The record is a 90-nucleotide RNA sequence from Rosa chinensis, which matches "Small nucleolar RNA snR60/Z15/Z230/Z193/J17" in Rfam. For this family Rfam cites "A computational screen for methylation guide snoRNAs in yeast" (Lowe and Eddy, Science, 1999). The family is grouped with related families in Rfam's "SNORD77 clan". The match comes from Rfam's covariance-model search (74 bits).
[Rfam]
RNA sequence: AUGGGUCAUGUGAUGAUUGAUGCAUAGUUCACAUGAGUUUAUCUGUGAUUAAACAUCAUUUUAGUCUUUCGCUCCUAUCUGAUGACCCCU
Number, nucleotide and partner (000 for none) at each position: 001a000002u000003g000004g087005g086006u085007c084008a083009u000010g000011u000012g000013a000014u000015g000016a000017u000018u000019g000020a000021u000022g000023c000024a000025u000026a000027g000028u000029u000030c000031a000032c000033a000034u000035g000036a000037g000038u000039u000040u000041a000042u000043c000044u000045g000046u000047g000048a000049u000050u000051a000052a000053a000054c000055a000056u000057c000058a000059u000060u000061u000062u000063a000064g000065u000066c000067u000068u000069u000070c000071g000072c000073u000074c000075c000076u000077a000078u000079c000080u000081g000082a000083u008084g007085a006086c005087c004088c000089c000090u000